Shown here is a 246-nucleotide RNA sequence from Coturnix japonica, a member of the family "Small nucleolar RNA SNORD17". The snoRNA HBI-43 belongs to the C/D family of snoRNAs, guiding 2'O-ribose methylation at position U3797 of the 28S rRNA. Pseudouridylation in position U3797 is predicted to be guided by the H/ACA snoRNA ACA48. The family has 19 seed sequences and 1,015 matches in Rfam 15.1. Rfam links the family to the GO terms RNA processing and nucleolus. The family's RNA type in Rfam is C/D-box small nucleolar RNA.
RNA sequence: GUGAGGUGAUGAAGAAGUUUAUCCAUUCUCUGAGUGCGCUGGCACUGCCCUCCUGCAGCACCCGAUUCCUGUUCUAGGGUCUGGGUGCCGUGCAACCUCCAGAGACCCUGCAGUGUCCCAGCGUCCUGCUGGGGGCUGCUGUGGUGUGUGGCUGGCUGCCUGCAGGAGCAAAGCGGUGCAGGCAGGGUCAGGGCCCCUCUCCGGGGGGCUCUGUCCUCACUGAGACGAGGGAUGACAUCUGAUUAC
Numbered sequence: 001g002u003g004a005g006g007u008g009a010u011g012a013a014g015a016a017g018u019u020u021a022u023c024c025a026u027u028c029u030c031u032g033a034g035u036g037c038g039c040u041g042g043c044a045c046u047g048c049c050c051u052c053c054u055g056c057a058g059c060a061c062c063c064g065a066u067u068c069c070u071g072u073u074c075u076a077g078g079g080u081c082u083g084g085g086u087g088c089c090g091u092g093c094a095a096c097c098u099c100c101a102g103a104g105a106c107c108c109u110g111c112a113g114u115g116u117c118c119c120a121g122c123g124u125c126c127u128g129c130u131g132g133g134g135g136c137u138g139c140u141g142u143g144g145u146g147u148g149u150g151g152c153u154g155g156c157u158g159c160c161u162g163c164a165g166g167a168g169c170a171a172a173g174c175g176g177u178g179c180a181g182g183c184a185g186g187g188u189c190a191g192g193g194c195c196c197c198u199c200u201c202c203g204g205g206g207g208g209c210u211c212u213g214u215c216c217u218c219a220c221u222g223a224g225a226c227g228a229g230g231g232a233u234g235a236c237a238u239c240u241g242a243u244u245a246c
Stems, first nucleotide, its partner, number of pairs: 010245003017238002020235001023231002026229003030224002034220002038183003043178006050168007058088006064081002067079004092159003096155002105145002110139005116134008185218002187215001189213004194208004